Small nucleolar RNA snoR109: a 91-nucleotide RNA from Genlisea aurea. It scores 55 bits against the family's covariance model. Rfam 15.1 lists 680 matches to the family in 220 species. For this family Rfam cites "Experimental RNomics: identification of 140 candidates for small non-messenger RNAs in the plant Arabidopsis thaliana" (Marker et al., Curr Biol, 2002). By type it is an H/ACA-box small nucleolar RNA.

RNA sequence: AGGCUGUAGCCAUAGAAACCGUUGAAGGAGCUUUACUGGCCGGUUAUCGAAGUAUCCGUCGAUUUUCUUGCUUACCGAGCUUCUCACAUCU
Numbered sequence: 001a002g003g004c005u006g007u008a009g010c011c012a013u014a015g016a017a018a019c020c021g022u023u024g025a026a027g028g029a030g031c032u033u034u035a036c037u038g039g040c041c042g043g044u045u046a047u048c049g050a051a052g053u054a055u056c057c058g059u060c061g062a063u064u065u066u067c068u069u070g071c072u073u074a075c076c077g078a079g080c081u082u083c084u085c086a087c088a089u090c091u
Base pairs, nucleotide, nucleotide: 026084027083028082029081030080031079032078038072039071040070042068043067046063047062048061049060